Record summary:
The record is a 242-nucleotide sequence from Kalanchoe fedtschenkoi, which matches "RNase MRP" in Rfam. It scores 90 bits against the family's covariance model. Its family is annotated with ribonuclease MRP activity, ribonuclease MRP complex and rRNA processing in the Gene Ontology.

RNA sequence: CAAGCACGAGACGAAGUGAUUGGGCUAUGGGCUCAACUGAUGUUGGGUCCGAGCCAGGAAAGUCCCCGGGCCGCUACUGCAGAGAUGCAGUCUAGGAAACUAGAGUAAUUUCCAGCCGGCGGCUCCUUCGGCUGAGACGCGUGCGGAGCCCCGCGGGUCGCCAGCUGGGUUGAUUUGGCCGAUUGCACAGUCAUUCACUUGGUCUUCAUGACUAACAGAACGGGGCUUACGAUCUCGUGCCA
Numbered sequence: 001c002a003a004g005c006a007c008g009a010g011a012c013g014a015a016g017u018g019a020u021u022g023g024g025c026u027a028u029g030g031g032c033u034c035a036a037c038u039g040a041u042g043u044u045g046g047g048u049c050c051g052a053g054c055c056a057g058g059a060a061a062g063u064c065c066c067c068g069g070g071c072c073g074c075u076a077c078u079g080c081a082g083a084g085a086u087g088c089a090g091u092c093u094a095g096g097a098a099a100c101u102a103g104a105g106u107a108a109u110u111u112c113c114a115g116c117c118g119g120c121g122g123c124u125c126c127u128u129c130g131g132c133u134g135a136g137a138c139g140c141g142u143g144c145g146g147a148g149c150c151c152c153g154c155g156g157g158u159c160g161c162c163a164g165c166u167g168g169g170u171u172g173a174u175u176u177g178g179c180c181g182a183u184u185g186c187a188c189a190g191u192c193a194u195u196c197a198c199u200u201g202g203u204c205u206u207c208a209u210g211a212c213u214a215a216c217a218g219a220a221c222g223g224g225g226c227u228u229a230c231g232a233u234c235u236c237g238u239g240c241c242a
Stems, first nucleotide, its partner, number of pairs: 004240008014200006023055003029050009060228003064225004078089004091104005106172003112168005118162004129156001131154002139149002142146001202212003
The family is grouped with related families in Rfam's "RNaseP clan". By type it is a ribozyme. Taxonomically the source falls in Kalanchoe (Eukaryota, Streptophyta, Embryophyta, Pentapetalae).